[Rfam]
RNA: Small nucleolar RNA SNORA30/SNORA37 family
Organism: Callithrix jacchus
RNA sequence: UGGGCCCUUUCCCGGGCUCUCUCCUUGGCAGUAGGGCCAGGAUUGGGUUGCUGGUGCCAAGAGAAAGCCCUUGAUGGCAUCUUUGCCCUGGUACUGUACCAGUGGCGGCUGUCACUUAAUGGGACAAAG
Numbered sequence: 001u002g003g004g005c006c007c008u009u010u011c012c013c014g015g016g017c018u019c020u021c022u023c024c025u026u027g028g029c030a031g032u033a034g035g036g037c038c039a040g041g042a043u044u045g046g047g048u049u050g051c052u053g054g055u056g057c058c059a060a061g062a063g064a065a066a067g068c069c070c071u072u073g074a075u076g077g078c079a080u081c082u083u084u085g086c087c088c089u090g091g092u093a094c095u096g097u098a099c100c101a102g103u104g105g106c107g108g109c110u111g112u113c114a115c116u117u118a119a120u121g122g123g124a125c126a127a128a129g
Base pairs, nucleotide, nucleotide: 003058004057005056007054008053013046015044018041019040020039022036023035024034025033068123069122070121071119072118073117074116077113079112080111083108084107085106086105087104088102089101090100091099